[Rfam]
RNA: DUF805 RNA
RNA sequence: UAAAUGUGGAGACCAGAAACCACUUUAAAAACGGGGCGUAACCGAAAAGCCAAACGAGUAGAAAACUA
Numbered sequence: 001u002a003a004a005u006g007u008g009g010a011g012a013c014c015a016g017a018a019a020c021c022a023c024u025u026u027a028a029a030a031a032c033g034g035g036g037c038g039u040a041a042c043c044g045a046a047a048a049g050c051c052a053a054a055c056g057a058g059u060a061g062a063a064a065a066c067u068a
Stems, first nucleotide, its partner, number of pairs: 006023004035051003043061001